[Rfam]
RNA sequence: GGAGUCGGCCAGGCAGCCGCUGCCCUUCGGGGUGGAGGAAAGUCCGGGCUCCACAGGACAGGGUGCCAGGUAAUGCCUGGAAGGCGCGAGCCUAUGGAAAGUGCCACAGAAAAUAUACCGCCCCAUCAGCCCUCACAGGCGGGCGGGGUAAGGGUGAAAUGGUGCGGUAAGAGCGCACCGCGCGGCCGGCAACGGCGGUGGCAGGGCAAACCCCACCCGGAGCAAGACCAAAUAGGGGGGCAUCGGGGCAACCCGGACGUGUGGUCCGCACGGCUCCCGGGUAGGUCGCUUGAGGCGCGUCGCGAGGCGUGUCCCAGAUGAAUGGCUGUCCAAGACAGAACCCGGCUUAUCGGCCAACUCCACUU
Numbered sequence: 001g002g003a004g005u006c007g008g009c010c011a012g013g014c015a016g017c018c019g020c021u022g023c024c025c026u027u028c029g030g031g032g033u034g035g036a037g038g039a040a041a042g043u044c045c046g047g048g049c050u051c052c053a054c055a056g057g058a059c060a061g062g063g064u065g066c067c068a069g070g071u072a073a074u075g076c077c078u079g080g081a082a083g084g085c086g087c088g089a090g091c092c093u094a095u096g097g098a099a100a101g102u103g104c105c106a107c108a109g110a111a112a113a114u115a116u117a118c119c120g121c122c123c124c125a126u127c128a129g130c131c132c133u134c135a136c137a138g139g140c141g142g143g144c145g146g147g148g149u150a151a152g153g154g155u156g157a158a159a160u161g162g163u164g165c166g167g168u169a170a171g172a173g174c175g176c177a178c179c180g181c182g183c184g185g186c187c188g189g190c191a192a193c194g195g196c197g198g199u200g201g202c203a204g205g206g207c208a209a210a211c212c213c214c215a216c217c218c219g220g221a222g223c224a225a226g227a228c229c230a231a232a233u234a235g236g237g238g239g240g241c242a243u244c245g246g247g248g249c250a251a252c253c254c255g256g257a258c259g260u261g262u263g264g265u266c267c268g269c270a271c272g273g274c275u276c277c278c279g280g281g282u283a284g285g286u287c288g289c290u291u292g293a294g295g296c297g298c299g300u301c302g303c304g305a306g307g308c309g310u311g312u313c314c315c316a317g318a319u320g321a322a323u324g325g326c327u328g329u330c331c332a333a334g335a336c337a338g339a340a341c342c343c344g345g346c347u348u349a350u351c352g353g354c355c356a357a358c359u360c361c362a363c364u365u
Stems, first nucleotide, its partner, number of pairs: 001361005007355004011350001012330007020035006040348003044345005049222004056267004061218005066080005081095001082093004096213002101211002103207003118153002120149005126143002161179006180202001181200003185196004226287004236278006258272005294313008
Rfam assigns this 365-nucleotide RNA from Methylomagnum ishizawai to the family "Bacterial RNase P class A". The base pairs follow the family's consensus structure, which is taken from published work. A search with the family's covariance model found it, with a score of 315 bits. Rfam links the family to the GO terms tRNA processing, ribonuclease P activity and dimeric ribonuclease P complex. The organism belongs to Methylomagnum, within Bacteria.